[Rfam]
RNA: TD-1 RNA
Organism: Treponema sp. Marseille-Q4132
RNA sequence: GUUUAACUUCGAGUUUGCCUUUCGGCAAACGUCGCUUAUUAACUGUGCGCUUGCGCACAUCAAUUCAACAGUCUCCAAAAUUGAUAUUUUGUUCGACUGUUGAAUUUUAAG
Numbered sequence: 001g002u003u004u005a006a007c008u009u010c011g012a013g014u015u016u017g018c019c020u021u022u023c024g025g026c027a028a029a030c031g032u033c034g035c036u037u038a039u040u041a042a043c044u045g046u047g048c049g050c051u052u053g054c055g056c057a058c059a060u061c062a063a064u065u066c067a068a069c070a071g072u073c074u075c076c077a078a079a080a081u082u083g084a085u086a087u088u089u090u091g092u093u094c095g096a097c098u099g100u101u102g103a104a105u106u107u108u109a110a111g
Stems, first nucleotide, its partner, number of pairs: 011033002013030007045058005063105011076091006